This 58-nucleotide RNA sequence from Paraburkholderia sp. DHOC27 belongs to the Rfam family "Betaproteobacteria toxic small RNA". For this family Rfam cites "A vast collection of microbial genes that are toxic to bacteria" (Kimelman et al., Genome Res, 2012).
[Rfam]
RNA sequence: CGUCUCCUCCAUGUCUCCAGGAUAUGGAUUCAGCCCGCCCUCGCGCGGGCUUUUUCUU
Number, nucleotide and partner (000 for none) at each position: 001c000002g000003u000004c000005u000006c000007c000008u028009c027010c026011a025012u024013g023014u022015c021016u000017c000018c000019a000020g000021g015022a014023u013024a012025u011026g010027g009028a008029u000030u000031c000032a051033g050034c049035c048036c047037g046038c045039c000040c000041u000042c000043g000044c000045g038046c037047g036048g035049g034050c033051u032052u000053u000054u000055u000056c000057u000058u000
From the family's description: Overexpression in amino aid rich medium attenuates growth, suggesting role in repressing amino acid intake and metabolism. The base pairs follow the family's consensus structure, which was predicted with WAR.